[Rfam]
RNA sequence: ACACGUGGCGGGUGGAAGGCUCCGCUGUGUCUAACCCUAAUCGGAGGUAUUGAUGGUACUGUCGCCGCGCUCCCUCCGCCCGCUGUUUACUCGCUGACUUUCAGCGGGCUAGGGGAGCCGCCCCAGGGGGCGCCGCGGCGGGGAGGGGGUGGGGCGGACGCGGGAGAAAGGACCGAAAGGGGCUCCACGGCAAACAAAAAAAAAAACGUCAGCGAGGGGUCCUCUCGCCCCCAUCCGCCCUGGGGUCCUCGCCCGCAGGCCGCGGUCGGCCGGCACCCGCCAUUGCCGCCGCGAAGAGUUCGCCUCUGUCAGCCUCGGCGGCGCCCGGGAGAUGCGGCGCGCGGCCCCGCGCCCCCAGCAGAGCAACACGGGGCGGCGCCCCCGGGGCAACCCCCGCGCCCCCCUGCGCCGUGGGGCGCGCGGACGGCGUCGCUCCCACACGC
Numbered sequence: 001a002c003a004c005g006u007g008g009c010g011g012g013u014g015g016a017a018g019g020c021u022c023c024g025c026u027g028u029g030u031c032u033a034a035c036c037c038u039a040a041u042c043g044g045a046g047g048u049a050u051u052g053a054u055g056g057u058a059c060u061g062u063c064g065c066c067g068c069g070c071u072c073c074c075u076c077c078g079c080c081c082g083c084u085g086u087u088u089a090c091u092c093g094c095u096g097a098c099u100u101u102c103a104g105c106g107g108g109c110u111a112g113g114g115g116a117g118c119c120g121c122c123c124c125a126g127g128g129g130g131c132g133c134c135g136c137g138g139c140g141g142g143g144a145g146g147g148g149g150u151g152g153g154g155c156g157g158a159c160g161c162g163g164g165a166g167a168a169a170g171g172a173c174c175g176a177a178a179g180g181g182g183c184u185c186c187a188c189g190g191c192a193a194a195c196a197a198a199a200a201a202a203a204a205a206a207c208g209u210c211a212g213c214g215a216g217g218g219g220u221c222c223u224c225u226c227g228c229c230c231c232c233a234u235c236c237g238c239c240c241u242g243g244g245g246u247c248c249u250c251g252c253c254c255g256c257a258g259g260c261c262g263c264g265g266u267c268g269g270c271c272g273g274c275a276c277c278c279g280c281c282a283u284u285g286c287c288g289c290c291g292c293g294a295a296g297a298g299u300u301c302g303c304c305u306c307u308g309u310c311a312g313c314c315u316c317g318g319c320g321g322c323g324c325c326c327g328g329g330a331g332a333u334g335c336g337g338c339g340c341g342c343g344g345c346c347c348c349g350c351g352c353c354c355c356c357a358g359c360a361g362a363g364c365a366a367c368a369c370g371g372g373g374c375g376g377c378g379c380c381c382c383c384g385g386g387g388c389a390a391c392c393c394c395c396g397c398g399c400c401c402c403c404c405u406g407c408g409c410c411g412u413g414g415g416g417c418g419c420g421c422g423g424a425c426g427g428c429g430u431c432g433c434u435c436c437c438a439c440a441c442g443c
Base pairs, nucleotide, nucleotide: 008232010230011229012228013227014226015225018221019220020219021218022217069118070117071116072115073114078109079108080107081106082105083104084103085102093213094212095211096210097209098208099206100205101204240358241357242356243355244354245353248329249328250327251326253321254320255319256318261293262292263291264290265289267288268287269286270285272281273280274279295307296306297305298304371435372434373433374432375431376430377429378428379427380426394423395422396421397420398419401416402415403414404413
RNA: Vertebrate telomerase RNA